Description: This 90-nucleotide RNA sequence belongs to the Rfam family "mir-146 microRNA precursor family". A reference for the family is Cai et al. (2005), "Kaposi's sarcoma-associated herpesvirus expresses an array of viral microRNAs in latently infected cells", Proc Natl Acad Sci U S A. Pairs were carried over by alignment from the consensus structure, which was predicted with WAR.
RNA sequence: UUGAGCACUUUUCCCUGAGAACUGAAUUCCAUAGAUGGUGUUCAUGAAAAGUUCAUCUAUGGGCUCAGUUCUUCUGGCAAUCUGUUUAAU
Numbered sequence: 001u002u003g004a005g006c007a008c009u010u011u012u013c014c015c016u017g018a019g020a021a022c023u024g025a026a027u028u029c030c031a032u033a034g035a036u037g038g039u040g041u042u043c044a045u046g047a048a049a050a051g052u053u054c055a056u057c058u059a060u061g062g063g064c065u066c067a068g069u070u071c072u073u074c075u076g077g078c079a080a081u082c083u084g085u086u087u088a089a090u
Stems, first nucleotide, its partner, number of pairs: 009080001012077002018072008034056001
Dot-bracket structure: ........(..((....((((((((........(.....................)........))))))))...))..)..........